[Rfam]
RNA: Plastid-psbA-4 3UTR RNA
RNA sequence: AAAAUAAAGGAGCAAUAAACUCUUUCUUGUUCUAUCAAGAGGGCGUUAUUGCUCCUUUAU
Dot-bracket structure: .....((((((((((((....(.((((((......)))))).)...))))))))))))..
Numbered sequence: 001a002a003a004a005u006a007a008a009g010g011a012g013c014a015a016u017a018a019a020c021u022c023u024u025u026c027u028u029g030u031u032c033u034a035u036c037a038a039g040a041g042g043g044c045g046u047u048a049u050u051g052c053u054c055c056u057u058u059a060u
Stems, first nucleotide, its partner, number of pairs: 006058012022043001024041006